Description: The family of this 272-nucleotide RNA sequence from Marine Group I thaumarchaeote SCGC AAA799-B03 is "Archaeal RNase P". Ribonuclease P (RNase P) is a ubiquitous endoribonuclease, found in archaea, bacteria and eukarya as well as chloroplasts and mitochondria. Its best characterised activity is the generation of mature 5'-ends of tRNAs by cleaving the 5'-leader elements of precursor-tRNAs. Cellular RNase Ps are ribonucleoproteins. Its Rfam clan is "RNaseP clan". The source organism's lineage runs through Archaea, Thermoproteati, Nitrososphaerota and Marine Group I. It scores 166 bits against the family's covariance model. For this family Rfam cites "Ribonuclease P: unity and diversity in a tRNA processing ribozyme" (Frank and Pace, Annu Rev Biochem, 1998).
RNA sequence: GUGAGCUGGAGCACGACACGCUGCUACGGCAGAGGAAACUCCUCCCUCCAUACAGGAUAUGUGAUCUGGAGAUAGAUAAUCAGAGAUGAUUGGCAACGGAGCAGAAAAAAAUCGCACAGUGAUGGUGAAAGCCUGAGGUUUCCAUAAAAGGAAUGAAAAAAGCCGACCCACAUGGAGCAAAGCCAAACAGAACUUUAUGUUCCUGUACUAAGUUCAGGUAGGCUGCAAAGCGAAAUAUCGUGAAAACAGAAGGAGGGUUACUCCCAGCACAC
Numbered sequence: 001g002u003g004a005g006c007u008g009g010a011g012c013a014c015g016a017c018a019c020g021c022u023g024c025u026a027c028g029g030c031a032g033a034g035g036a037a038a039c040u041c042c043u044c045c046c047u048c049c050a051u052a053c054a055g056g057a058u059a060u061g062u063g064a065u066c067u068g069g070a071g072a073u074a075g076a077u078a079a080u081c082a083g084a085g086a087u088g089a090u091u092g093g094c095a096a097c098g099g100a101g102c103a104g105a106a107a108a109a110a111a112u113c114g115c116a117c118a119g120u121g122a123u124g125g126u127g128a129a130a131g132c133c134u135g136a137g138g139u140u141u142c143c144a145u146a147a148a149a150g151g152a153a154u155g156a157a158a159a160a161a162g163c164c165g166a167c168c169c170a171c172a173u174g175g176a177g178c179a180a181a182g183c184c185a186a187a188c189a190g191a192a193c194u195u196u197a198u199g200u201u202c203c204u205g206u207a208c209u210a211a212g213u214u215c216a217g218g219u220a221g222g223c224u225g226c227a228a229a230g231c232g233a234a235a236u237a238u239c240g241u242g243a244a245a246a247c248a249g250a251a252g253g254a255g256g257g258u259u260a261c262u263c264c265c266a267g268c269a270c271a272c
Stems, first nucleotide, its partner, number of pairs: 001272003005268005010262002012242005021032004037259003041256005046177004051207005059173005064077005078091005092168002097165003112152002124133002181224004190215005